[Rfam]
RNA sequence: GCGGACUUGGAUCCGUUGGAAUGUGACCUUAAUGGUUGAACCGUAGA
Dot-bracket structure: (((((......)))))(((.....((((.....))))...)))....

eL15-Euryarchaeota ribosomal protein leader: a 47-nucleotide RNA sequence. The family's RNA type in Rfam is cis-regulatory leader.